[Rfam]
RNA sequence: AAGACUAUACUUUCAGGGAUCAUUUCUAUAGUUUGUGACUUGAGAAAUGCGUUUCUAAAGUGUUUGGUCUCGCCAACCACGAGGAGGAUUCAUAGUGUCUCCUUCUGAGCGCGAAGCGGGUCGGGAGUGUUGCUUUAAAGCAGCUGUUCCCGACCAUUGAUGACCGUUCCUCUCUCUUACGGGCUGGGGAAGAAGGAGACACUUUCUGAGUGGG
Numbered sequence: 001a002a003g004a005c006u007a008u009a010c011u012u013u014c015a016g017g018g019a020u021c022a023u024u025u026c027u028a029u030a031g032u033u034u035g036u037g038a039c040u041u042g043a044g045a046a047a048u049g050c051g052u053u054u055c056u057a058a059a060g061u062g063u064u065u066g067g068u069c070u071c072g073c074c075a076a077c078c079a080c081g082a083g084g085a086g087g088a089u090u091c092a093u094a095g096u097g098u099c100u101c102c103u104u105c106u107g108a109g110c111g112c113g114a115a116g117c118g119g120g121u122c123g124g125g126a127g128u129g130u131u132g133c134u135u136u137a138a139a140g141c142a143g144c145u146g147u148u149c150c151c152g153a154c155c156a157u158u159g160a161u162g163a164c165c166g167u168u169c170c171u172c173u174c175u176c177u178u179a180c181g182g183g184c185u186g187g188g189g190a191a192g193a194a195g196g197a198g199a200c201a202c203u204u205u206c207u208g209a210g211u212g213g214g
Stems, first nucleotide, its partner, number of pairs: 001041003005037001006035002009032003015027004051064001055062001077213004095202012109167003119155004125149004129144005170188002173183003
The record is a 214-nucleotide sequence from Atractosteus spatula, which matches "Small nucleolar RNA U3" in Rfam. The family's consensus secondary structure is taken from published work. It is annotated as a C/D-box small nucleolar RNA. Rfam's curators write: Small nucleolar RNAs (snoRNAs) are involved in the processing and modification of rRNA in the nucleolus. There are two main classes of snoRNAs: the box C/D class, and the box H/ACA class. U3 snoRNA is a member of the box C/D class. Indeed, the box C/D element is a subset of the six short sequence elements found in all U3 snoRNAs, namely boxes A, A', B, C, C', and D. The U3 snoRNA secondary structure is characterised by a small 5' domain (with boxes A and A'), and a larger 3' domain (with boxes B, C, C', and D), the two domains being linked by a single-stranded hinge. Its Rfam clan is "U3 clan". On this family, see Zwieb, Nucleic Acids Res 1997: "The uRNA database". Taxonomically the source falls in Atractosteus (Eukaryota, Opisthokonta, Teleostomi, Actinopterygii).